RNA sequence: CUAAAUCUAUUGGGGAUCAUUGUAGAAGCGUGCUCGUCGCGACCCCUGCCAGCCCUUUUCAGGGCUGCAAUUUUACA
Number, nucleotide and partner (000 for none) at each position: 001c000002u000003a000004a000005a000006u000007c000008u000009a000010u000011u000012g000013g046014g045015g044016a000017u042018c041019a000020u000021u077022g076023u075024a074025g073026a072027a071028g040029c039030g038031u000032g000033c000034u000035c000036g000037u000038c030039g029040c028041g018042a017043c000044c015045c014046c013047u000048g000049c000050c067051a066052g065053c064054c063055c062056u061057u000058u000059u000060c000061a056062g055063g054064g053065c052066u051067g050068c000069a000070a000071u027072u026073u025074u024075a023076c022077a021